[Rfam]
RNA: Small nucleolar RNA SNORD25
RNA sequence: UGGAGCAGUGAUGAGUCCUACUACAGACCUGUGAUGAUUUGCGGUGAUGAUCGCAACUCUUUUAAGAACAUCUAAGGGACUGAGUUCCA
Numbered sequence: 001u002g003g004a005g006c007a008g009u010g011a012u013g014a015g016u017c018c019u020a021c022u023a024c025a026g027a028c029c030u031g032u033g034a035u036g037a038u039u040u041g042c043g044g045u046g047a048u049g050a051u052c053g054c055a056a057c058u059c060u061u062u063u064a065a066g067a068a069c070a071u072c073u074a075a076g077g078g079a080c081u082g083a084g085u086u087c088c089a
Base pairs, nucleotide, nucleotide: 002088003087004086005085006084